Source information:
The family of this 186-nucleotide RNA from Citrobacter sp. JGM124 is "Manganese Mn2+ riboswitch aptamer (yybP-ykoY)". A reference for the family is Argaman et al. (2001), "Novel small RNA-encoding genes in the intergenic regions of Escherichia coli", Curr Biol. Rfam 15.1 lists 1,126 matches to the family in 1,062 species. Rfam's curators write: This RNA was originally discovered in E. coli during a large scale screen and was named SraF. The family was later found to exist upstream of related families of protein genes in many bacteria, including the the yybP and ykoK genes in B. subtilis. Taxonomically the source falls in Citrobacter (Bacteria, Pseudomonadota, Gammaproteobacteria, Enterobacterales). The match comes from Rfam's covariance-model search (53 bits).

[Rfam]
RNA sequence: GCGCCCGUUAGUGGGGAGUAGCCGAUUUCCUUUUAUGGAAAUGUACAUGUCAACAUACUCGUUUCAGCCGUUUGGUAAUGAAACGUGGCAUGUACGCCUCAGCAUUCUGAGUAGGCGAGACCAUAGGCGCACACCAUCGUAAGUUGGGGAUGGCUGUCGUGCAUAUGGAUAUUCCCAACUGAGGUU
Numbered sequence: 001g002c003g004c005c006c007g008u009u010a011g012u013g014g015g016g017a018g019u020a021g022c023c024g025a026u027u028u029c030c031u032u033u034u035a036u037g038g039a040a041a042u043g044u045a046c047a048u049g050u051c052a053a054c055a056u057a058c059u060c061g062u063u064u065c066a067g068c069c070g071u072u073u074g075g076u077a078a079u080g081a082a083a084c085g086u087g088g089c090a091u092g093u094a095c096g097c098c099u100c101a102g103c104a105u106u107c108u109g110a111g112u113a114g115g116c117g118a119g120a121c122c123a124u125a126g127g128c129g130c131a132c133a134c135c136a137u138c139g140u141a142a143g144u145u146g147g148g149g150a151u152g153g154c155u156g157u158c159g160u161g162c163a164u165a166u167g168g169a170u171a172u173u174c175c176c177a178a179c180u181g182a183g184g185u186u
Stems, first nucleotide, its partner, number of pairs: 026040002043095010060085007096185007